msiK RNA: a 58-nucleotide RNA sequence from Rhodococcoides fascians. Rfam classes the family as a cis-regulatory element.

[Rfam]
RNA sequence: CGCCGUCACCCCACACUCGGAUCGUCCGGCACGUUCCUGCCGGUGGAGGGAUCUAUUU
Dot-bracket structure: ........(((..((..........((((((......))))))))..)))........